[Rfam]
RNA: Vertebrate telomerase RNA
RNA sequence: CGGCAGCGGUUGGGAGGUUUUCCUUCUUUUCUAACCCUAACUCGCUGUCUCCGACGGCGGUUGGCCUCGUUCGCUGUUUUACUCGCUGACUUUCAGCGAACCGGAAAAAACGUCAGCGAUUCGGGGGAAGCCUCCUCCUCCGCUAGCCGGCCACGCGUCGGUUCCCUCCUUUCCUCGCCUUGAGCGUGCUCGGCUCUCCAGCCGGCGGCGCCGCCCCCGCUCGAGGCCGCGGUCAGCUUGGUCCGGGCCGCUGCUGCCGCGAAGGGUUUGGCCCUGCCCGCCUCGGGGGAGGCGAGUCUCAACCGAAAGGCGGAGGGCGGGGGGGAAAAAAAAAGGGCUCGCAAGGCCCGGGCGUGAGAGCAAAUACGGGCGGCGGCCCGUGUCCCGCUCGCCCCUGAGUAGUGGGGUGUGCGGCGGGCGCCGUCCGGACAUGC
Numbered sequence: 001c002g003g004c005a006g007c008g009g010u011u012g013g014g015a016g017g018u019u020u021u022c023c024u025u026c027u028u029u030u031c032u033a034a035c036c037c038u039a040a041c042u043c044g045c046u047g048u049c050u051c052c053g054a055c056g057g058c059g060g061u062u063g064g065c066c067u068c069g070u071u072c073g074c075u076g077u078u079u080u081a082c083u084c085g086c087u088g089a090c091u092u093u094c095a096g097c098g099a100a101c102c103g104g105a106a107a108a109a110a111c112g113u114c115a116g117c118g119a120u121u122c123g124g125g126g127g128a129a130g131c132c133u134c135c136u137c138c139u140c141c142g143c144u145a146g147c148c149g150g151c152c153a154c155g156c157g158u159c160g161g162u163u164c165c166c167u168c169c170u171u172u173c174c175u176c177g178c179c180u181u182g183a184g185c186g187u188g189c190u191c192g193g194c195u196c197u198c199c200a201g202c203c204g205g206c207g208g209c210g211c212c213g214c215c216c217c218c219g220c221u222c223g224a225g226g227c228c229g230c231g232g233u234c235a236g237c238u239u240g241g242u243c244c245g246g247g248c249c250g251c252u253g254c255u256g257c258c259g260c261g262a263a264g265g266g267u268u269u270g271g272c273c274c275u276g277c278c279c280g281c282c283u284c285g286g287g288g289g290a291g292g293c294g295a296g297u298c299u300c301a302a303c304c305g306a307a308a309g310g311c312g313g314a315g316g317g318c319g320g321g322g323g324g325g326a327a328a329a330a331a332a333a334a335g336g337g338c339u340c341g342c343a344a345g346g347c348c349c350g351g352g353c354g355u356g357a358g359a360g361c362a363a364a365u366a367c368g369g370g371c372g373g374c375g376g377c378c379c380g381u382g383u384c385c386c387g388c389u390c391g392c393c394c395c396u397g398a399g400u401a402g403u404g405g406g407g408u409g410u411g412c413g414g415c416g417g418g419c420g421c422c423g424u425c426c427g428g429a430c431a432u433g434c
Stems, first nucleotide, its partner, number of pairs: 005144005012137001013135005019129005069101008085117006091110003147351004152346001194317006205298001209294003215288004228261005234256004240249003263275004368426008377417002385414004392407004